The record is a 77-nucleotide RNA from Caenorhabditis elegans, which matches "mir-50 microRNA precursor family" in Rfam. The literature on the family includes a 2009 paper in Genome Biol by Kato et al., "Dynamic expression of small non-coding RNAs, including novel microRNAs and piRNAs/21U-RNAs, during Caenorhabditis elegans development". It is one of the family's seed sequences. The organism belongs to Caenorhabditis, within Eukaryota. Its Rfam clan is "mir-50 clan".

RNA sequence: CGGCCGCUGAUAUGUCUGGUAUUCUUGGGUUUGAACUUCCAGCGUUGAACCCGCAUAUUAGACGUAUCGACGGCCGG
Dot-bracket structure: .......(((((((((((((((.....((((................))))...)))))))))))))))........